[Rfam]
RNA sequence: GAGUUUUUUGUUGUGGCGAGGAUAAGAAGAUUAUCUUCGUAUUCGAAGGGAAACCGAUUCGUCUGCAACUUUUAGUGAGAGACAAGGUCUUAAUAGGGCCUGAAGUCACAGCAUCAAAACCCGAAGCCGGUCGAUCUAUUCCUGAGCAGGAUGAAGUCGCUCUUACGAGUGAUGGAGGUCCGCAGGGUUGUUGUCGUGCAAAACACUCCUCUGACUUGGGAAUAGUGGUGAAAGGCCAAUCAAGGCCGGUGACAGCUGGUU
Number, nucleotide and partner (000 for none) at each position: 001g000002a000003g000004u000005u117006u116007u000008u000009u113010g112011u111012u110013g109014u108015g107016g106017c105018g000019a000020g044021g043022a042023u041024a000025a000026g038027a037028a036029g035030a000031u000032u000033a000034u000035c029036u028037u027038c026039g000040u000041a023042u022043u021044c020045g000046a000047a000048g055049g054050g000051a000052a000053a000054c049055c048056g000057a000058u000059u000060c000061g083062u082063c081064u080065g000066c000067a000068a076069c075070u074071u000072u000073u000074a070075g069076u068077g000078a000079g000080a064081g063082a062083c061084a000085a000086g100087g099088u098089c097090u000091u000092a000093a000094u000095a000096g000097g089098g088099c087100c086101u000102g000103a000104a000105g017106u016107c015108a014109c013110a012111g011112c010113a009114u000115c000116a006117a005118a000119a000120c259121c258122c000123g256124a000125a000126g000127c249128c248129g247130g246131u245132c244133g000134a000135u000136c225137u224138a223139u222140u221141c220142c219143u218144g217145a216146g215147c213148a000149g181150g180151a179152u178153g000154a000155a000156g173157u172158c171159g170160c169161u168162c167163u000164u000165a000166c000167g162168a161169g160170u159171g158172a157173u156174g000175g000176a000177g000178g152179u151180c150181c149182g000183c000184a000185g210186g209187g208188u000189u000190g206191u205192u000193g204194u203195c000196g000197u000198g000199c000200a000201a000202a000203a194204c193205a191206c190207u000208c187209c186210u185211c000212u000213g147214a000215c146216u145217u144218g143219g142220g141221a140222a139223u138224a137225g136226u000227g237228g236229u235230g000231a000232a000233a000234g000235g229236c228237c227238a000239a000240u000241c000242a000243a000244g132245g131246c130247c129248g128249g127250u000251g000252a000253c000254a000255g000256c123257u000258g121259g120260u000261u000
RNA: Archaeal large subunit ribosomal RNA, nucleotides 675 to 935
Organism: Candidatus Methanobinarius endosymbioticus